RNA sequence: GCCGCCACUCACACCCACUGCUGGUACCUGGUGCCAGUCCCGAUCGCUUGGUGCUGUCAGUGGGUGUGAGUGGCAGCUG
Numbered sequence: 001g002c003c004g005c006c007a008c009u010c011a012c013a014c015c016c017a018c019u020g021c022u023g024g025u026a027c028c029u030g031g032u033g034c035c036a037g038u039c040c041c042g043a044u045c046g047c048u049u050g051g052u053g054c055u056g057u058c059a060g061u062g063g064g065u066g067u068g069a070g071u072g073g074c075a076g077c078u079g
Base pairs, nucleotide, nucleotide: 004074005073006072007071008070009069010068011067012066013065014064015063016062017061018060019059020058022056023055024054025053026052027051028050
RNA: mir-9198 microRNA precursor family